Shown here is a 96-nucleotide sequence from Phoenix dactylifera, a member of the family "mir-172 microRNA precursor family". Rfam describes the family as follows. mir-172 has been experimentally verified in Arabidopsis thaliana. This family is thought to target mRNAs coding for APETALA2-like transcription factors. The literature on the family includes a 2004 paper in Mol Cell by Jones-Rhoades and Bartel, "Computational Identification of Plant MicroRNAs and Their Targets, Including a Stress-Induced miRNA". Gene Ontology terms of the family: miRNA-mediated post-transcriptional gene silencing and RISC complex. The match comes from Rfam's covariance-model search (84 bits).
RNA sequence: AUGUUUGCAGGUGUGGCAUCAUCAAGAUUCACAUUGAUCGAGCUGCUGCAGUCCGAUUCUUAAUGAGAAUCUUGAUGAUGCUGCAUCGGCAAAUAG
Number, nucleotide and partner (000 for none) at each position: 001a000002u000003g000004u000005u000006u000007g000008c000009a000010g087011g086012u085013g084014u083015g082016g081017c080018a079019u078020c077021a076022u075023c074024a073025a072026g071027a070028u069029u068030c067031a000032c065033a064034u063035u062036g061037a060038u000039c000040g000041a000042g000043c000044u000045g000046c000047u000048g000049c000050a000051g000052u000053c000054c000055g000056a000057u000058u000059c000060u037061u036062a035063a034064u033065g032066a000067g030068a029069a028070u027071c026072u025073u024074g023075a022076u021077g020078a019079u018080g017081c016082u015083g014084c013085a012086u011087c010088g000089g000090c000091a000092a000093a000094u000095a000096g000